[Rfam]
RNA: mir-3492 microRNA precursor family
Organism: Schistosoma japonicum
RNA sequence: AGCUUUCUGAAUCCGUGCUAACAUUUCAUCAGACACCAGCCCUCCAGUGUUGAUGAAACUUUCAAGAUAAUUGAAGUG
Numbered sequence: 001a002g003c004u005u006u007c008u009g010a011a012u013c014c015g016u017g018c019u020a021a022c023a024u025u026u027c028a029u030c031a032g033a034c035a036c037c038a039g040c041c042c043u044c045c046a047g048u049g050u051u052g053a054u055g056a057a058a059c060u061u062u063c064a065a066g067a068u069a070a071u072u073g074a075a076g077u078g
Stems, first nucleotide, its partner, number of pairs: 002077005011068003016064002020061002024058007